Shown here is a 99-nucleotide RNA from Paenibacillus sp. 598K, a member of the family "Guanidine-I riboswitch aptamer". NCBI's taxonomy places the organism under Bacteria, Bacillati, Caryophanales, Paenibacillaceae, Paenibacillus.
RNA sequence: AGAACAGUUUUCUAGGGUUCCGCACGCCUCGCGUGGACUGGACCGAGAGAGAACGGCAGCUUCACGGCUGUGACACGGAGGGAUAAAAGCCCGGGAGAU
Numbered sequence: 001a002g003a004a005c006a007g008u009u010u011u012c013u014a015g016g017g018u019u020c021c022g023c024a025c026g027c028c029u030c031g032c033g034u035g036g037a038c039u040g041g042a043c044c045g046a047g048a049g050a051g052a053a054c055g056g057c058a059g060c061u062u063c064a065c066g067g068c069u070g071u072g073a074c075a076c077g078g079a080g081g082g083a084u085a086a087a088a089g090c091c092c093g094g095g096a097g098a099u
Base pairs, nucleotide, nucleotide: 007054008053009052010051011050012049015044016043020041021040022038023035024034025033026032027031056071057070058069059068060067061066074094076097080092081091082090